[Rfam]
RNA sequence: CCAAAGGCUCUUUUAAGAGCCACCCACUUCCAACUAAAGACAUUC
Numbered sequence: 001c002c003a004a005a006g007g008c009u010c011u012u013u014u015a016a017g018a019g020c021c022a023c024c025c026a027c028u029u030c031c032a033a034c035u036a037a038a039g040a041c042a043u044u045c
Stems, first nucleotide, its partner, number of pairs: 006021006
The record is a 45-nucleotide sequence from Dissostichus mawsoni, which matches "Histone 3' UTR stem-loop" in Rfam. A search with the family's covariance model found it, with a score of 39 bits. By type it is a cis-regulatory element. The source organism's lineage runs through Eukaryota, Actinopterygii, Neopterygii, Neoteleostei and Dissostichus. The mRNAs of metazoan histone genes lack a poly-A tail. 3' end processing occurs at a site between a highly conserved stem-loop (modelled by this family) and a purine rich region around 20 nts downstream (the histone downstream element, or HDE). The family's consensus secondary structure is taken from published work.